[Rfam]
RNA sequence: GCUCAAGAAUUCUGUCGUAAGCCCUCCGGCAUGACAGAAUGGCAACCGCUCCCGCAAGACGGUGCUACCGGAGGAAGAGCUGGUCGACGAGGUCAGUCGACAAGGCGGGAAG
Numbered sequence: 001g002c003u004c005a006a007g008a009a010u011u012c013u014g015u016c017g018u019a020a021g022c023c024c025u026c027c028g029g030c031a032u033g034a035c036a037g038a039a040u041g042g043c044a045a046c047c048g049c050u051c052c053c054g055c056a057a058g059a060c061g062g063u064g065c066u067a068c069c070g071g072a073g074g075a076a077g078a079g080c081u082g083g084u085c086g087a088c089g090a091g092g093u094c095a096g097u098c099g100a101c102a103a104g105g106c107g108g109g110a111a112g
Stems, first nucleotide, its partner, number of pairs: 001080004009040007021030001041066003046062003050057001083101006089094001
The family of this 112-nucleotide RNA sequence from Ferrithrix thermotolerans is "SAM (S-adenosyl methionine) riboswitch aptamer". About the family: SAM-IV is a mRNA element that regulates gene expression via direct sensing of S-adenosylmethionine (SAM or AdoMet). A reference for the family is Weinberg et al. (2008), "The aptamer core of SAM-IV riboswitches mimics the ligand-binding site of SAM-I riboswitches", RNA.